[Rfam]
RNA sequence: CACUUGGGGGGGAGGUCCCUCAGCUCAGAUUGCAAGAGGGCUCAGGCCAGGCUGAGGGACCCUACCAGUGUGUG
Numbered sequence: 001c002a003c004u005u006g007g008g009g010g011g012g013a014g015g016u017c018c019c020u021c022a023g024c025u026c027a028g029a030u031u032g033c034a035a036g037a038g039g040g041c042u043c044a045g046g047c048c049a050g051g052c053u054g055a056g057g058g059a060c061c062c063u064a065c066c067a068g069u070g071u072g073u074g
Stems, first nucleotide, its partner, number of pairs: 003072001006069001009066002012063001014061012028047001030045003

Overview
Shown here is a 74-nucleotide RNA from Pipistrellus kuhlii, a member of the family "mir-9193 microRNA precursor family". The family has 2 seed sequences and 6,008 matches in Rfam 15.1.